[Rfam]
RNA sequence: CUCUUAUCCAGAGAGGCGGAGGGACUGGCCCGACGAUGCCCGGCAACCAUCAAAUGAUUCGUUCAUUUGAAAAGGUGCUAAUUCCUGCAGGAAGUAAUUCCUGACAGAUAAGAG
Numbered sequence: 001c002u003c004u005u006a007u008c009c010a011g012a013g014a015g016g017c018g019g020a021g022g023g024a025c026u027g028g029c030c031c032g033a034c035g036a037u038g039c040c041c042g043g044c045a046a047c048c049a050u051c052a053a054a055u056g057a058u059u060c061g062u063u064c065a066u067u068u069g070a071a072a073a074g075g076u077g078c079u080a081a082u083u084c085c086u087g088c089a090g091g092a093a094g095u096a097a098u099u100c101c102u103g104a105c106a107g108a109u110a111a112g113a114g
Base pairs, nucleotide, nucleotide: 001114002113003112004111005110006109007108008107013041015040016039017038021031022030023029025087027085028084042079043078044077045076047075048074050070051069052068053067054066055065056064083106088103089102090101091100092099093098
The record is a 114-nucleotide RNA from Aquibacillus koreensis, which matches "SAM riboswitch aptamer (S box leader)" in Rfam. It scores 94 bits against the family's covariance model. The organism belongs to Aquibacillus, within Bacteria.